[Rfam]
RNA sequence: GACGAAUGAGCUCUGUACAAUUAAACACGAUGAAGCAUUGUGCAGAGU
Number, nucleotide and partner (000 for none) at each position: 001g000002a000003c000004g000005a000006a000007u000008g000009a000010g000011c047012u046013c045014u044015g043016u000017a041018c040019a039020a000021u000022u000023a000024a000025a000026c000027a000028c000029g000030a000031u000032g000033a000034a000035g000036c000037a000038u000039u019040g018041u017042g000043c015044a014045g013046a012047g011048u000
This 48-nucleotide sequence from Lachnotalea glycerini belongs to the Rfam family "uup RNA". NCBI's taxonomy places the organism under Bacteria, Bacillati, Clostridia, Lachnospirales, Lachnotalea. The family's RNA type in Rfam is cis-regulatory element. The family's consensus secondary structure is taken from published work. The match comes from Rfam's covariance-model search (64 bits).